Shown here is a 128-nucleotide RNA from Cricetulus griseus, a member of the family "Small nucleolar RNA SNORA11". The literature on the family includes a 2005 paper in Nucleic Acids Res by Gu et al., "A novel experimental approach for systematic identification of box H/ACA snoRNAs from eukaryotes". Rfam's curators write: U107 (SNORA11) is a member of the H/ACA class of snoRNAs that guide the sites of modification of uridines to pseudouridines. This snoRNA was identified by RT-PCR from blood cells and its expression confirmed by Northern blot analysis. There is no predicted target for this guide snRNA. Rfam classes the family as an H/ACA-box small nucleolar RNA. The organism belongs to Cricetulus, within Eukaryota.
RNA sequence: GGGGUGUGCUCAGAGCAGGGGGCCUGGAGAAUGGCUUCUCUGUUUACCACAUACCCAAGAGGAAUCUAGGACCAUUAUAAUGAGGGACACAGCACGGUGUCCUCUCUGUGAGCAGAUCCCUUACAUGA
Numbered sequence: 001g002g003g004g005u006g007u008g009c010u011c012a013g014a015g016c017a018g019g020g021g022g023c024c025u026g027g028a029g030a031a032u033g034g035c036u037u038c039u040c041u042g043u044u045u046a047c048c049a050c051a052u053a054c055c056c057a058a059g060a061g062g063a064a065u066c067u068a069g070g071a072c073c074a075u076u077a078u079a080a081u082g083a084g085g086g087a088c089a090c091a092g093c094a095c096g097g098u099g100u101c102c103u104c105u106c107u108g109u110g111a112g113c114a115g116a117u118c119c120c121u122u123a124c125a126u127g128a
Stems, first nucleotide, its partner, number of pairs: 002056007013045009022035003069121002076114001078112001081110002084103003088099003